[Rfam]
Annotation:
mir-160 microRNA precursor family: an 86-nucleotide RNA from Lupinus angustifolius. The source organism's lineage runs through Eukaryota, Streptophytina, Tracheophyta, Genisteae and Lupinus. It scores 75 bits against the family's covariance model.
RNA sequence: AUAUGCCUGGCUCCCUAUAUGCCAUCUUCAGAGCUCAUUGGAACUUUAAUGGCUUCCGUGGAUGGCGUAUAUGGAGCCAAGCAUAU
Numbered sequence: 001a002u003a004u005g006c007c008u009g010g011c012u013c014c015c016u017a018u019a020u021g022c023c024a025u026c027u028u029c030a031g032a033g034c035u036c037a038u039u040g041g042a043a044c045u046u047u048a049a050u051g052g053c054u055u056c057c058g059u060g061g062a063u064g065g066c067g068u069a070u071a072u073g074g075a076g077c078c079a080a081g082c083a084u085a086u
Base pairs, nucleotide, nucleotide: 001086002085003084004083005082006081008079009078010077011076012075013074014073016071017070018069019068020067021066022065023064024063027060029058
The literature on the family includes a 2002 paper in Cell by Rhoades et al., "Prediction of plant microRNA targets".